[Rfam]
The family of this 148-nucleotide sequence from Capra hircus is "Small nucleolar RNA SNORA79". NCBI's taxonomy places the organism under Eukaryota, Chordata, Craniata, Artiodactyla, Capra. Its family is annotated with RNA processing and nucleolus in the Gene Ontology.
RNA sequence: UGAUGGCUGUUUCUCUUGUGGCUGGAGCCUUAAGGCAGUGAGAUUUUUGUCCGUCAUAUGUAUAAGCUGGCUUGUCUUCUCUCAGGACACCACAGAGUUGGCUUGGCUGUUUGUUAGUGUGUUUUUACUUUUGCAGAAUCACACAAUU
Numbered sequence: 001u002g003a004u005g006g007c008u009g010u011u012u013c014u015c016u017u018g019u020g021g022c023u024g025g026a027g028c029c030u031u032a033a034g035g036c037a038g039u040g041a042g043a044u045u046u047u048u049g050u051c052c053g054u055c056a057u058a059u060g061u062a063u064a065a066g067c068u069g070g071c072u073u074g075u076c077u078u079c080u081c082u083c084a085g086g087a088c089a090c091c092a093c094a095g096a097g098u099u100g101g102c103u104u105g106g107c108u109g110u111u112u113g114u115u116a117g118u119g120u121g122u123u124u125u126u127a128c129u130u131u132u133g134c135a136g137a138a139u140c141a142c143a144c145a146a147u148u
Stems, first nucleotide, its partner, number of pairs: 001056006008049001014043005021036002069140002072137002082127001084125003087120004095112002099109002
Dot-bracket structure: ((((((.(.....(((((..((............))..))))).....).))))))............((.((........(.(((((((....((..((.......)).))....))))..))).)........)).))........
ACA65 (SNORA79) is a member of the H/ACA class of snoRNAs that guide the sites of modification of uridines to pseudouridines. This snoRNA was identified by computational screening and its expression in mouse experimentally verified by Northern blot and primer extension analysis. It is annotated as an H/ACA-box small nucleolar RNA. A reference for the family is Schattner et al. (2006), "A computational screen for mammalian pseudouridylation guide H/ACA RNAs", RNA. The family has 25 seed sequences and 944 matches in Rfam 15.1. The match comes from Rfam's covariance-model search (65 bits). The family's consensus secondary structure was predicted with RNAalifold.